A member of the RNA family "R2 RNA element" from Agrilus planipennis, 215 nucleotides long.
The match comes from Rfam's covariance-model search (50 bits).
RNA sequence: AAUUACCAUUAGAUUCUACGACAUUUUCUCUGCAAGAUGUGUACUUCAGAGUUUUAAUUUUCGUUCAUUUAGAUGGCAAAAACGGUCCAAACAUGGGUGGUAAGGGGUUAAGGUAGAGGGGUUUUAGUUGGUAGGUCCUCAUAGGAGGGAAUCCAACACUACCCAGUCGUACGGACGUCUGGGUGUCUUUUGAAGAUUUCCCCUCUACCACGAAA
Numbered sequence: 001a002a003u004u005a006c007c008a009u010u011a012g013a014u015u016c017u018a019c020g021a022c023a024u025u026u027u028c029u030c031u032g033c034a035a036g037a038u039g040u041g042u043a044c045u046u047c048a049g050a051g052u053u054u055u056a057a058u059u060u061u062c063g064u065u066c067a068u069u070u071a072g073a074u075g076g077c078a079a080a081a082a083c084g085g086u087c088c089a090a091a092c093a094u095g096g097g098u099g100g101u102a103a104g105g106g107g108u109u110a111a112g113g114u115a116g117a118g119g120g121g122u123u124u125u126a127g128u129u130g131g132u133a134g135g136u137c138c139u140c141a142u143a144g145g146a147g148g149g150a151a152u153c154c155a156a157c158a159c160u161a162c163c164c165a166g167u168c169g170u171a172c173g174g175a176c177g178u179c180u181g182g183g184u185g186u187c188u189u190u191u192g193a194a195g196a197u198u199u200c201c202c203c204u205c206u207a208c209c210a211c212g213a214a215a
Base pairs, nucleotide, nucleotide: 028051029050030049060214061213062212063211064210112209113208114207115206116205118202119201120200127157128156129155130154131153136149137148138147139146140145159185161184162183163182164181165180
Overview
Rfam's curators write: This family represents the 3' UTR region of the R2 retrotransposable element. This family is known to interact with the R2-encoded reverse transcriptase in a reaction known as target primed reverse transcription (TPRT).